[Rfam]
RNA sequence: CUUAGUUAACCGUUGUCUAUACAUUGAACGCAGCUAGAAACUUAGCUUCUUUUUACAUUCUCCAUCACGUCGCGUUAUUCGUAGUUCUUCGUCCUGUAGUAUUUAAAAAUUUUGCCUCUUUUUCACGCUAUUCUCGCCUCCCGAAGGCUUAUUUAUUUUUGAUCUACAGGAUACAUAUUAUGUCUAAUACAACUACUGGCACAGUAAAAUGGUUUAACGAAACUAAAGGUUUUGGUUUCAUCGAACAAGAAUCUGGCCCAGACGUUUUCGCUCAUUUCAGCGCUAUCUCUAGCUCUGGCUUCAAAACAUUGGCUGAAGGCCAACGUGUAGAGUUCGUUGUGACUCAAGGCCAAAAAGGCCCACAAGCUGAGAACAUCGUUGCACUUUAAUUCUUAAUUAAAGUAGCACAUUAAAAAGGGGCGAUACCGCAAGGUAUCGCCCCUUUU
Numbered sequence: 001c002u003u004a005g006u007u008a009a010c011c012g013u014u015g016u017c018u019a020u021a022c023a024u025u026g027a028a029c030g031c032a033g034c035u036a037g038a039a040a041c042u043u044a045g046c047u048u049c050u051u052u053u054u055a056c057a058u059u060c061u062c063c064a065u066c067a068c069g070u071c072g073c074g075u076u077a078u079u080c081g082u083a084g085u086u087c088u089u090c091g092u093c094c095u096g097u098a099g100u101a102u103u104u105a106a107a108a109a110u111u112u113u114g115c116c117u118c119u120u121u122u123u124c125a126c127g128c129u130a131u132u133c134u135c136g137c138c139u140c141c142c143g144a145a146g147g148c149u150u151a152u153u154u155a156u157u158u159u160u161g162a163u164c165u166a167c168a169g170g171a172u173a174c175a176u177a178u179u180a181u182g183u184c185u186a187a188u189a190c191a192a193c194u195a196c197u198g199g200c201a202c203a204g205u206a207a208a209a210u211g212g213u214u215u216a217a218c219g220a221a222a223c224u225a226a227a228g229g230u231u232u233u234g235g236u237u238u239c240a241u242c243g244a245a246c247a248a249g250a251a252u253c254u255g256g257c258c259c260a261g262a263c264g265u266u267u268u269c270g271c272u273c274a275u276u277u278c279a280g281c282g283c284u285a286u287c288u289c290u291a292g293c294u295c296u297g298g299c300u301u302c303a304a305a306a307c308a309u310u311g312g313c314u315g316a317a318g319g320c321c322a323a324c325g326u327g328u329a330g331a332g333u334u335c336g337u338u339g340u341g342a343c344u345c346a347a348g349g350c351c352a353a354a355a356a357g358g359c360c361c362a363c364a365a366g367c368u369g370a371g372a373a374c375a376u377c378g379u380u381g382c383a384c385u386u387u388a389a390u391u392c393u394u395a396a397u398u399a400a401a402g403u404a405g406c407a408c409a410u411u412a413a414a415a416a417g418g419g420g421c422g423a424u425a426c427c428g429c430a431a432g433g434u435a436u437c438g439c440c441c442c443u444u445u446u
Stems, first nucleotide, its partner, number of pairs: 004018002007015003024248002029243002037239002044237004048229004057224001059222001062219001065216001067214001069213003080182006093170007136148003184199003188195001252341001254339003261269002272330001274328002277325001282321001283319002287312002296305001348361002350358002364386003368381003394407001397404001416443012
Notes:
This 446-nucleotide RNA from Marinomonas piezotolerans belongs to the Rfam family "cspA thermoregulator". The base pairs follow the family's consensus structure, which is taken from published work. A search with the family's covariance model found it, with a score of 82 bits. Taxonomically the source falls in Marinomonas (Bacteria, Pseudomonadati, Pseudomonadota, Oceanospirillaceae). The family's RNA type in Rfam is RNA thermoregulator.